[Rfam]
The family of this 52-nucleotide sequence from Lyngbya sp. PCC 8106 is "Nitrogen stress-induced RNA 1".
The family has 17 seed sequences and 962 matches in Rfam 15.1.
A search with the family's covariance model found it, with a score of 47 bits.
NCBI's taxonomy places the organism under Bacteria, Bacillati, Cyanophyceae, Oscillatoriales, Lyngbya.
RNA sequence: CAGUAGAUGCACCCUGAUGAAUUUCCCUUGGCAAAAGCUAGGGGAUUUUUUU
Numbered sequence: 001c002a003g004u005a006g007a008u009g010c011a012c013c014c015u016g017a018u019g020a021a022u023u024u025c026c027c028u029u030g031g032c033a034a035a036a037g038c039u040a041g042g043g044g045a046u047u048u049u050u051u052u
Stems, first nucleotide, its partner, number of pairs: 003012002025044008

The base pairs follow the family's consensus structure. By type it is a small RNA. For this family Rfam cites "Heterocyst-specific transcription of NsiR1, a non-coding RNA encoded in a tandem array of direct repeats in cyanobacteria" (Ionescu et al., J Mol Biol, 2010).